Rfam assigns this 259-nucleotide RNA sequence from Gracilibacillus kekensis to the family "BsrG". Rfam classes the family as a small RNA. The organism belongs to Gracilibacillus, within Bacteria. A search with the family's covariance model found it, with a score of 58 bits. bsrE, bsrG and bsrH pair through intermolecular interactions with antisense sRNAs.
[Rfam]
RNA sequence: GAUAAUGUUCUUUUAGGGUAAGGUCGGCUAAUCCCCUUAUGAAAGGGGGUGAUGCUUAUGAGUAUGUAUGAGAGUUUUAUGGUACUAUUUGGAUUUGGUACCUUCUUGAUUGCAUUACUCGCAUUGAUCGUUUCGUUGAUCAAUAGAAAAUAGACCUCCCUAUUUGCCCUGAAAAGUAAUUAGGAGAGGUCUAACUCUAUGUGUUAGCCGAUCCCACUGGGGGAACCGCUUAUCCAUAACCCGUAGUAUCAGCUACGGG
Numbered sequence: 001g002a003u004a005a006u007g008u009u010c011u012u013u014u015a016g017g018g019u020a021a022g023g024u025c026g027g028c029u030a031a032u033c034c035c036c037u038u039a040u041g042a043a044a045g046g047g048g049g050u051g052a053u054g055c056u057u058a059u060g061a062g063u064a065u066g067u068a069u070g071a072g073a074g075u076u077u078u079a080u081g082g083u084a085c086u087a088u089u090u091g092g093a094u095u096u097g098g099u100a101c102c103u104u105c106u107u108g109a110u111u112g113c114a115u116u117a118c119u120c121g122c123a124u125u126g127a128u129c130g131u132u133u134c135g136u137u138g139a140u141c142a143a144u145a146g147a148a149a150a151u152a153g154a155c156c157u158c159c160c161u162a163u164u165u166g167c168c169c170u171g172a173a174a175a176g177u178a179a180u181u182a183g184g185a186g187a188g189g190u191c192u193a194a195c196u197c198u199a200u201g202u203g204u205u206a207g208c209c210g211a212u213c214c215c216a217c218u219g220g221g222g223g224a225a226c227c228g229c230u231u232a233u234c235c236a237u238a239a240c241c242c243g244u245a246g247u248a249u250c251a252g253c254u255a256c257g258g259g
Stems, first nucleotide, its partner, number of pairs: 001234005007229002011225001012211002014162005022155001024153001029052001031050001033048005060122001062120001065117002073088001098113003176200003212224004240259007247251001
Background:
A reference for the family is Saito et al. (2008), "Novel small RNA-encoding genes in the intergenic regions of Bacillus subtilis", Gene.